[Rfam]
RNA sequence: GGUUUUAACCCAAGUUAACCAAGGUUAGCAUGGAAUUCGACCUGUUGAAAAACUGUGUUGAACACAAUAAUUUUUGGAACAGCUUCUCCGGGGUUUCCGGAGAGGCGGA
Numbered sequence: 001g002g003u004u005u006u007a008a009c010c011c012a013a014g015u016u017a018a019c020c021a022a023g024g025u026u027a028g029c030a031u032g033g034a035a036u037u038c039g040a041c042c043u044g045u046u047g048a049a050a051a052a053c054u055g056u057g058u059u060g061a062a063c064a065c066a067a068u069a070a071u072u073u074u075u076g077g078a079a080c081a082g083c084u085u086c087u088c089c090g091g092g093g094u095u096u097c098c099g100g101a102g103a104g105g106c107g108g109a
Stems, first nucleotide, its partner, number of pairs: 007037002009033002014029002017026003038060004042055001044053003084107001086105002089102001092098002

A member of the RNA family "SL2 RNA" from Caenorhabditis brenneri, 109 nucleotides long. The literature on the family includes a 2000 paper in Mol Cell Biol by Evans and Blumenthal, "trans splicing of polycistronic Caenorhabditis elegans pre-mRNAs: analysis of the SL2 RNA". This family represents SL2 RNA. SL2 RNA is involved in trans splicing in lower eukaryotes. The family's RNA type in Rfam is non-coding RNA gene. Taxonomically the source falls in Caenorhabditis (Eukaryota, Rhabditida, Rhabditomorpha, Rhabditoidea). Clan: SL clan. Rfam 15.1 lists 598 matches to the family in 38 species.